[Rfam]
RNA sequence: AUACUUACCUGGCACGGGAGACACCUUUAUCAUGAAGGAGGUUUUCCCAGGUUGAGGCUCAUCCAUUGCACUGCAGGUGUGCUGACCCCUGUGAUUUCCACAAAUGCAGGAAACUCAGUGGGAUAAUUUCUGCUAGUGGGGGACUGUGCUCAUGUUUUCCCCUG
Numbered sequence: 001a002u003a004c005u006u007a008c009c010u011g012g013c014a015c016g017g018g019a020g021a022c023a024c025c026u027u028u029a030u031c032a033u034g035a036a037g038g039a040g041g042u043u044u045u046c047c048c049a050g051g052u053u054g055a056g057g058c059u060c061a062u063c064c065a066u067u068g069c070a071c072u073g074c075a076g077g078u079g080u081g082c083u084g085a086c087c088c089c090u091g092u093g094a095u096u097u098c099c100a101c102a103a104a105u106g107c108a109g110g111a112a113a114c115u116c117a118g119u120g121g122g123a124u125a126a127u128u129u130c131u132g133c134u135a136g137u138g139g140g141g142g143a144c145u146g147u148g149c150u151c152a153u154g155u156u157u158u159c160c161c162c163u164g
Stems, first nucleotide, its partner, number of pairs: 013121001016048006023042005049090003054086001056083003060079004092117003095113003099109001138163006146155003
The family of this 164-nucleotide sequence from Podarcis lilfordi is "U1 spliceosomal RNA".
Clan: U1 clan.
The organism belongs to Podarcis, within Eukaryota.
It scores 113 bits against the family's covariance model.
The base pairs follow the family's consensus structure, which is taken from published work.